[Rfam]
Nucleotides: 106
Base pairs, nucleotide, nucleotide: 007093008092009091010090011056012055013054014053017034018033019032020031021030041049042048043047062087063086064085069080070079071078
Number, partner (000 for none) and nucleotide at each position: 001000u002000u003000a004000a005000u006000u007093a008092g009091c010090u011056a012055g013054g014053g015000g016000u017034g018033c019032c020031g021030u022000u023000c024000u025000a026000c027000a028000g029000g030021a031020c032019g033018g034017c035000u036000g037000a038000g039000a040000g041049g042048a043047a044000u045000u046000u047043u048042u049041c050000c051000a052000a053014c054013u055012c056011u057000u058000u059000g060000a061000a062087c063086c064085u065000g066000a067000a068000a069080u070079g071078g072000g073000u074000a075000a076000u077000a078071c079070c080069a081000g082000c083000g084000g085064a086063g087062g088000g089000a090010a091009g092008c093007u094000u095000a096000a097000u098000a099000g100000a101000c102000g103000u104000u105000a106000g
Rfam assigns this 106-nucleotide RNA sequence from Salipaludibacillus agaradhaerens to the family "TPP riboswitch aptamer (THI element)". The base pairs follow the family's consensus structure, which is taken from published work. The match comes from Rfam's covariance-model search (70 bits).